[Rfam]
RNA sequence: AAAAUUGAAUAUCGUUUUACUUGUUUAUGUCGUGAAUUGGCACGACGUUUCUACAAGGUGCCGGAACACCUAACAAUAAGUAAGUCAGCAGUGAGA
Numbered sequence: 001a002a003a004a005u006u007g008a009a010u011a012u013c014g015u016u017u018u019a020c021u022u023g024u025u026u027a028u029g030u031c032g033u034g035a036a037u038u039g040g041c042a043c044g045a046c047g048u049u050u051c052u053a054c055a056a057g058g059u060g061c062c063g064g065a066a067c068a069c070c071u072a073a074c075a076a077u078a079a080g081u082a083a084g085u086c087a088g089c090a091g092u093g094a095g096a
Stems, first nucleotide, its partner, number of pairs: 018082008029046006056071005

Description
Purine riboswitch aptamer: a 96-nucleotide RNA sequence from Streptococcus pneumoniae. About the family: Riboswitches are metabolite binding domains within certain messenger RNAs that serve as precision sensors for their corresponding targets. The organism belongs to Streptococcus pneumoniae, within Bacteria. For this family Rfam cites "Riboswitches Control Fundamental Biochemical Pathways in Bacillus subtilis and Other Bacteria" (Mandal et al., Cell, 2003). Rfam links the family to the GO term purine nucleobase biosynthetic process.